[Rfam]
RNA: mir-30 microRNA precursor family
Organism: Xenopus tropicalis
Nucleotides: 078
Stems, first nucleotide, its partner, number of pairs: 003076003008071012023058010
Number, partner (000 for none) and nucleotide at each position: 001000a002000c003076a004075g005074c006000c007000u008071c009070u010069g011068u012067a013066a014065a015064c016063a017062u018061c019060c020000u021000u022000g023058a024057c025056u026055g027054g028053a029052a030051g031050c032049u033000g034000u035000g036000a037000a038000a039000u040000a041000a042000u043000g044000a045000u046000a047000g048000u049032a050031g051030c052029u053028u054027u055026c056025a057024g058023u059000c060019g061018g062017a063016u064015g065014u066013u067012u068011a069010c070009a071008g072000c073000u074005g075004c076003u077000a078000g